[Rfam]
RNA sequence: AGGGCGGUAUCGAUGCACUCGAACCGCACCGGAAGUCGAAGCUUCACACCAUGUAGUCGUGGUUGAUUGAUGUCUUUUUGCAAGGCAGUGUACUCUGCUCUGAGCCGUUAGGGACCGAGACAGAAGG
Numbered sequence: 001a002g003g004g005c006g007g008u009a010u011c012g013a014u015g016c017a018c019u020c021g022a023a024c025c026g027c028a029c030c031g032g033a034a035g036u037c038g039a040a041g042c043u044u045c046a047c048a049c050c051a052u053g054u055a056g057u058c059g060u061g062g063u064u065g066a067u068u069g070a071u072g073u074c075u076u077u078u079u080g081c082a083a084g085g086c087a088g089u090g091u092a093c094u095c096u097g098c099u100c101u102g103a104g105c106c107g108u109u110a111g112g113g114a115c116c117g118a119g120a121c122a123g124a125a126g127g
Stems, first nucleotide, its partner, number of pairs: 002030002004027005010022004095123003098119003102115001105113002